[Rfam]
RNA sequence: UGAGACCUCUUGAUGGCCGCGGUCGGACGUGUUCGCAUGUCCGUCUGAGGAACUUCCGGGCUCCAUAGAGCACGAUGGCGGAUAACGUCCGCCCAGGGUGACCUGAGAGAUAGCGCAGCAGAGAACAGACCGCCUUUCGGUUUCGGCCGGAAGGUAAGGGUGAAACGGCGGUGUAAGAGACCACCGGGCCCCUGGUAACAGUGGGUCGCUUGGCAAGCCUCAUCGGGAGCAAGGCCAAACAGAUGGCGGCAAGGGCUGCUCGCCCGUGCCAUCGGGUAGGCUGCUAGAGCCCAGCGGUGACGUUGGGUCGAGAUGGAUGGCCAUCCGUGUGCCUGGCACACGACAGAACCCGGGGUAUAAGAGGUCUCAUUUC
Dot-bracket structure: ((((((((((.(((((((.(((.(((((((......))))))).)))....[[[.[[[[[((((...[[[[.((((((((((.....)))))(((((....)))).)((...((((.............(((((((((((......)))))))))..)).......((.(((.......))).))(((((((((....))).))))).)...))..)))))))))))))...((((.....((((((.....((((.]]]]))))..)))))).....))))......((((((((....))))))))..........))))))).......................]]]]]]]]...))))))))))....
Annotation: Bacterial RNase P class A: a 373-nucleotide RNA from Bifidobacterium merycicum. Its family is annotated with tRNA processing, dimeric ribonuclease P complex and ribonuclease P activity in the Gene Ontology.